[Rfam]
RNA sequence: CAGAAUAAGAACGCACCAGAUUUACGUAACAAAACCGGUUUUGUCCGUGGCCGCCUGGUGCGUUCUUAUUCUGGA
Numbered sequence: 001c002a003g004a005a006u007a008a009g010a011a012c013g014c015a016c017c018a019g020a021u022u023u024a025c026g027u028a029a030c031a032a033a034a035c036c037g038g039u040u041u042u043g044u045c046c047g048u049g050g051c052c053g054c055c056u057g058g059u060g061c062g063u064u065c066u067u068a069u070u071c072u073g074g075a
Stems, first nucleotide, its partner, number of pairs: 001073019023049004030043004